[Rfam]
RNA sequence: CGGCUUUUCCCUUUCAUUGUGAAGCAAAUUCCCAAGGUUGGUUUGUUCCCCACCAACAGGAACGUGAGGGGGGUUUUAGACCGUCGCGGACGGGUUUGUU
Numbered sequence: 001c002g003g004c005u006u007u008u009c010c011c012u013u014u015c016a017u018u019g020u021g022a023a024g025c026a027a028a029u030u031c032c033c034a035a036g037g038u039u040g041g042u043u044u045g046u047u048c049c050c051c052a053c054c055a056a057c058a059g060g061a062a063c064g065u066g067a068g069g070g071g072g073g074u075u076u077u078a079g080a081c082c083g084u085c086g087c088g089g090a091c092g093g094g095u096u097u098g099u100u
Base pairs, nucleotide, nucleotide: 001072004068005067006064007061010060011059012058015037018034019033021031022030023029039052040051041050079096080095081094082093083091084090085089
The family of this 100-nucleotide part of an RNA from Chionoecetes opilio is "Eukaryotic large subunit ribosomal RNA". The base pairs follow the family's consensus structure, which is taken from published work. A search with the family's covariance model found it, with a score of 1652 bits. Taxonomically the source falls in Chionoecetes (Eukaryota, Mandibulata, Communostraca, Majidae).